[Rfam]
RNA: Bacterial RNase P class A
Organism: Pseudaminobacter soli
RNA sequence: UCAGUCGGCUGGGCGGCCGCACCCGCAAGCGCCGAAAGGUCGCGGGUGAGGAAAGUCCGGGCUCCAUGGAGACACGGUGCCGGUUAACGACCGGCGGGGGCGACCCCAGGGAAAGUGCCACAGAAAGCAAACCGCCCCGCCUAUAGAUCGGCUCAUUUGCAUGGGCCAGGCUGCCGCAGAGGGCCGAUCUAUUGGCGGGGUAAGGGUGAAAGGGUGGGGUAAGAGCCCACCGCGCUGCCGGCAACGGGAGCGGCACGGCAAACCCCACCGGGAGCAAAACCGAAUAGGGAUGGCGCGAGGGGCGACCCUCAGGACUGUUUCCGGUCCAGCCAUCCGGGUAGGUUGCGCGAGACGCGGAGCAAUCCGCGUCCAAGACGAAUGGUCGCCACGUCCGCCUGCCGCAAGGCGGCGGGCCAUACAAAACCCGGCUUACAGGCCGGCUGACAUC
Numbered sequence: 001u002c003a004g005u006c007g008g009c010u011g012g013g014c015g016g017c018c019g020c021a022c023c024c025g026c027a028a029g030c031g032c033c034g035a036a037a038g039g040u041c042g043c044g045g046g047u048g049a050g051g052a053a054a055g056u057c058c059g060g061g062c063u064c065c066a067u068g069g070a071g072a073c074a075c076g077g078u079g080c081c082g083g084u085u086a087a088c089g090a091c092c093g094g095c096g097g098g099g100g101c102g103a104c105c106c107c108a109g110g111g112a113a114a115g116u117g118c119c120a121c122a123g124a125a126a127g128c129a130a131a132c133c134g135c136c137c138c139g140c141c142u143a144u145a146g147a148u149c150g151g152c153u154c155a156u157u158u159g160c161a162u163g164g165g166c167c168a169g170g171c172u173g174c175c176g177c178a179g180a181g182g183g184c185c186g187a188u189c190u191a192u193u194g195g196c197g198g199g200g201u202a203a204g205g206g207u208g209a210a211a212g213g214g215u216g217g218g219g220u221a222a223g224a225g226c227c228c229a230c231c232g233c234g235c236u237g238c239c240g241g242c243a244a245c246g247g248g249a250g251c252g253g254c255a256c257g258g259c260a261a262a263c264c265c266c267a268c269c270g271g272g273a274g275c276a277a278a279a280c281c282g283a284a285u286a287g288g289g290a291u292g293g294c295g296c297g298a299g300g301g302g303c304g305a306c307c308c309u310c311a312g313g314a315c316u317g318u319u320u321c322c323g324g325u326c327c328a329g330c331c332a333u334c335c336g337g338g339u340a341g342g343u344u345g346c347g348c349g350a351g352a353c354g355c356g357g358a359g360c361a362a363u364c365c366g367c368g369u370c371c372a373a374g375a376c377g378a379a380u381g382g383u384c385g386c387c388a389c390g391u392c393c394g395c396c397u398g399c400c401g402c403a404a405g406g407c408g409g410c411g412g413g414c415c416a417u418a419c420a421a422a423a424c425c426c427g428g429c430u431u432a433c434a435g436g437c438c439g440g441c442u443g444a445c446a447u448c
Stems, first nucleotide, its partner, number of pairs: 001444010011433001012387007020048007028040001053431003057428005062274004071320002075270005080094005095109001096107004110265002115263002117259003132205002134201008213231006232254001233252004238247003278344004288335006312327005351370008